[Rfam]
RNA: Small nucleolar RNA SNORD14
Organism: Arabidopsis lyrata
Nucleotides: 123
Stems, first nucleotide, its partner, number of pairs: 001123004060087006
Number, partner (000 for none) and nucleotide at each position: 001123g002122g003121u004120u005000a006000a007000u008000g009000a010000u011000g012000a013000u014000a015000a016000a017000u018000c019000c020000a021000a022000a023000g024000g025000c026000u027000u028000g029000u030000u031000u032000c033000u034000c035000a036000a037000a038000g039000a040000u041000u042000c043000g044000c045000a046000g047000u048000g049000g050000c051000c052000g053000c054000c055000u056000a057000a058000g059000a060087g061086c062085u063084u064083u065082c066000g067000c068000c069000u070000u071000u072000c073000g074000c075000c076000a077000g078000g079000c080000u081000u082065g083064a084063g085062a086061g087060u088000u089000a090000a091000u092000g093000c094000u095000g096000c097000u098000u099000u100000a101000u102000c103000c104000u105000u106000c107000c108000u109000u110000g111000g112000a113000u114000g115000u116000c117000u118000g119000a120004a121003a122002c123001u